[Rfam]
Rfam assigns this 62-nucleotide RNA sequence to the family "Selenocysteine insertion sequence 1".
RNA sequence: CCGGCACUCAUGACGGCCUGCCUGCAAACCUGCUGGUGGGGCAGACCCGAAAAUCCAGCGUG
Numbered sequence: 001c002c003g004g005c006a007c008u009c010a011u012g013a014c015g016g017c018c019u020g021c022c023u024g025c026a027a028a029c030c031u032g033c034u035g036g037u038g039g040g041g042c043a044g045a046c047c048c049g050a051a052a053a054u055c056c057a058g059c060g061u062g
Stems, first nucleotide, its partner, number of pairs: 001062001004059002015047002018044006029036002
Notes:
A reference for the family is Walczak et al. (1996), "A novel RNA structural motif in the selenocysteine insertion element of eukaryotic selenoprotein mRNAs", RNA. It is one of the family's seed sequences. The family's RNA type in Rfam is cis-regulatory element.